[Rfam]
RNA: mir-205 microRNA precursor family
Organism: Eptatretus burgeri
RNA sequence: UGCUGACGUCCUUCAUUCCACCGGAGUCUGUGGUUUUAAAGACAGAUUUCGGGGCAUGAAGCGCGUUAGACA
Numbered sequence: 001u002g003c004u005g006a007c008g009u010c011c012u013u014c015a016u017u018c019c020a021c022c023g024g025a026g027u028c029u030g031u032g033g034u035u036u037u038a039a040a041g042a043c044a045g046a047u048u049u050c051g052g053g054g055c056a057u058g059a060a061g062c063g064c065g066u067u068a069g070a071c072a
Stems, first nucleotide, its partner, number of pairs: 011061006019053001021052001023050004028045003